[Rfam]
RNA: U4 spliceosomal RNA
Organism: Chelonoidis abingdonii
RNA sequence: AGCUUUGCACAGUGGCAGUAUCAUACCAAUGAAGUUAAUCUGAGGUGUGAUUAUUGCUACUUGAAAAUCUGCUCCUUUCCUGGUGGUAGACGGUACAGUACUACUGGAAACAGCAGAAACUGUUACCAUCUCGCCUCUUUUUGUUACACUCACCAGU
Numbered sequence: 001a002g003c004u005u006u007g008c009a010c011a012g013u014g015g016c017a018g019u020a021u022c023a024u025a026c027c028a029a030u031g032a033a034g035u036u037a038a039u040c041u042g043a044g045g046u047g048u049g050a051u052u053a054u055u056g057c058u059a060c061u062u063g064a065a066a067a068u069c070u071g072c073u074c075c076u077u078u079c080c081u082g083g084u085g086g087u088a089g090a091c092g093g094u095a096c097a098g099u100a101c102u103a104c105u106g107g108a109a110a111c112a113g114c115a116g117a118a119a120c121u122g123u124u125a126c127c128a129u130c131u132c133g134c135c136u137c138u139u140u141u142u143g144u145u146a147c148a149c150u151c152a153c154c155a156g157u
Stems, first nucleotide, its partner, number of pairs: 020051008033041002085135003088131003092127004096122004151156001